The record is a 100-nucleotide sequence from Clostridium saccharobutylicum, which matches "Purine riboswitch aptamer" in Rfam. The base pairs follow the family's consensus structure, which is taken from published work. Clan: Purine riboswitches.
RNA sequence: UAAAAUUUUGAAAUAGAAUUUCGUAUAACUCCAAUAAUAUGGAUUGGAGGUCUCUACCAGGAACCAUUAAUUCCUGAUUACGAAGAAGAUACAAUUAUUU
Numbered sequence: 001u002a003a004a005a006u007u008u009u010g011a012a013a014u015a016g017a018a019u020u021u022c023g024u025a026u027a028a029c030u031c032c033a034a035u036a037a038u039a040u041g042g043a044u045u046g047g048a049g050g051u052c053u054c055u056a057c058c059a060g061g062a063a064c065c066a067u068u069a070a071u072u073c074c075u076g077a078u079u080a081c082g083a084a085g086a087a088g089a090u091a092c093a094a095u096u097a098u099u100u
Base pairs, nucleotide, nucleotide: 019085020084021083022082023081024080025079029049030048031047032046033045034044035043058076059075060074061073062072063071